[Rfam]
RNA: Small nucleolar RNA SNORA1
RNA sequence: AGCCUCCUUCUAGAUGCAAACGGGCACUGUUGUUCAUGGUGUCCAGAUAUUAUUGAUGUGGCCACGCUGAGACAUAAGUUUUGCUGUCAUCACAGUAAUUUUAUUGCAGAGGUGACAGGGAGACCUCUGACCUGU
Numbered sequence: 001a002g003c004c005u006c007c008u009u010c011u012a013g014a015u016g017c018a019a020a021c022g023g024g025c026a027c028u029g030u031u032g033u034u035c036a037u038g039g040u041g042u043c044c045a046g047a048u049a050u051u052a053u054u055g056a057u058g059u060g061g062c063c064a065c066g067c068u069g070a071g072a073c074a075u076a077a078g079u080u081u082u083g084c085u086g087u088c089a090u091c092a093c094a095g096u097a098a099u100u101u102u103a104u105u106g107c108a109g110a111g112g113u114g115a116c117a118g119g120g121a122g123a124c125c126u127c128u129g130a131c132c133u134g135u
Stems, first nucleotide, its partner, number of pairs: 002062003006058001008056001022044006074128001076126001078124001088114004093109001